[Rfam]
Notes: The family of this 83-nucleotide sequence from Luteibacter anthropi is "Pseudomonas sRNA P9". About the family: This small RNA (sRNA) was computationally identified in the genome of the opportunistic pathogen Pseudomonas aeruginosa and its expression verified by northern blot analysis. P9 appears to be conserved in several Pseudomonas species in addition to Bordetella spp. In both Pseudomonas and Bordetella spp P9 appears to be located upstream of a predicted threonine dehydratase gene. P9 has a predicted Rho independent terminator at the 3' end but the function of P9 is unknown. This sRNA also appears to be present in the Betaproteobacteria (Burkholderia and Ralstonia species).

RNA sequence: UUCAUUAUUGGCGCUGUCCCUUAAACGGCGGGGUAGCCAUCGACUGGAAAAAGUCACGAAAACCCGCCCGGAUGGCGGGUUUU
Number, nucleotide and partner (000 for none) at each position: 001u000002u000003c000004a000005u000006u000007a000008u000009u000010g000011g000012c030013g029014c028015u027016g026017u025018c000019c000020c000021u000022u000023a000024a000025a017026c016027g015028g014029c013030g012031g000032g000033g000034u000035a000036g000037c000038c000039a000040u000041c000042g000043a000044c000045u000046g000047g000048a000049a000050a000051a000052a000053g000054u000055c000056a000057c000058g000059a000060a082061a081062a080063c079064c078065c077066g076067c075068c074069c000070g000071g000072a000073u000074g068075g067076c066077g065078g064079g063080u062081u061082u060083u000

The base pairs follow the family's consensus structure, which was predicted with RNAalifold.